[Rfam]
RNA sequence: CUCGUCUGAGGGGACGCGAGGAUCGCCCUCGUCGCCGCCUGAGCCAGUGGUCCGGCCCGGCCUUGACAAGCCGCCGCAGGGGAGGCUCUCCUGAGCCCGCCGUGGAGUCCUGCGAUUGCCGCCUGCUCAUCCCGCCUCUGAUCUCCCGAGGGGUUUCGCACCUCUGGACGUGCCUCUCCUCUCCCCGCGUGUGGAGGGAGCGAGCUUAGGCCGGAGCGAGCCUGGGGGGCGCUGGCCGUGAAGGCAUCGCGGGGGCCGAUUCGCCAUG
Numbered sequence: 001c002u003c004g005u006c007u008g009a010g011g012g013g014a015c016g017c018g019a020g021g022a023u024c025g026c027c028c029u030c031g032u033c034g035c036c037g038c039c040u041g042a043g044c045c046a047g048u049g050g051u052c053c054g055g056c057c058c059g060g061c062c063u064u065g066a067c068a069a070g071c072c073g074c075c076g077c078a079g080g081g082g083a084g085g086c087u088c089u090c091c092u093g094a095g096c097c098c099g100c101c102g103u104g105g106a107g108u109c110c111u112g113c114g115a116u117u118g119c120c121g122c123c124u125g126c127u128c129a130u131c132c133c134g135c136c137u138c139u140g141a142u143c144u145c146c147c148g149a150g151g152g153g154u155u156u157c158g159c160a161c162c163u164c165u166g167g168a169c170g171u172g173c174c175u176c177u178c179c180u181c182u183c184c185c186c187g188c189g190u191g192u193g194g195a196g197g198g199a200g201c202g203a204g205c206u207u208a209g210g211c212c213g214g215a216g217c218g219a220g221c222c223u224g225g226g227g228g229g230c231g232c233u234g235g236c237c238g239u240g241a242a243g244g245c246a247u248c249g250c251g252g253g254g255g256c257c258g259a260u261u262c263g264c265c266a267u268g
Stems, first nucleotide, its partner, number of pairs: 001013003016032006034061003082156003086153001130151002133148001174200004182195003212235001214233001216232003
Rfam assigns this 268-nucleotide RNA sequence from Molossus molossus to the family "HIF-1 alpha IRES".
The source organism's lineage runs through Eukaryota, Metazoa, Teleostomi, Sarcopterygii and Molossus.
About the family: This family represents the hypoxia-inducible factor 1-alpha internal ribosome entry site. HIF-1a is a subunit of the HIF-1 transcription factor, which induces transcription of several genes involved in the cellular response to hypoxia. The HIF-1a IRES allows translation to be maintained under hypoxic cell conditions that inhibit cap-dependent translation.
Its family is annotated with ribosome binding in the Gene Ontology.